[Rfam]
RNA sequence: UGUUGAAAAUUUCAUCCAUUUCUAUUGUUAAAAAUUGAUAUGGUUGACAGAAUAACCAGCCACAUGUACCUCAUUCUAGUAUAUGGGGACUAGUUUUUAAUAGUAUAAAUGGGUGAAAUUUUUAGUA
Numbered sequence: 001u002g003u004u005g006a007a008a009a010u011u012u013c014a015u016c017c018a019u020u021u022c023u024a025u026u027g028u029u030a031a032a033a034a035u036u037g038a039u040a041u042g043g044u045u046g047a048c049a050g051a052a053u054a055a056c057c058a059g060c061c062a063c064a065u066g067u068a069c070c071u072c073a074u075u076c077u078a079g080u081a082u083a084u085g086g087g088g089a090c091u092a093g094u095u096u097u098u099a100a101u102a103g104u105a106u107a108a109a110u111g112g113g114u115g116a117a118a119u120u121u122u123u124a125g126u127a
Stems, first nucleotide, its partner, number of pairs: 002126015018110004023105004028100006
A member of the RNA family "MIR7502 microRNA precursor family" from Gossypium lobatum, 127 nucleotides long. The match comes from Rfam's covariance-model search (97 bits). Lineage of the source: Eukaryota > Streptophytina > rosids > Malvaceae > Gossypium.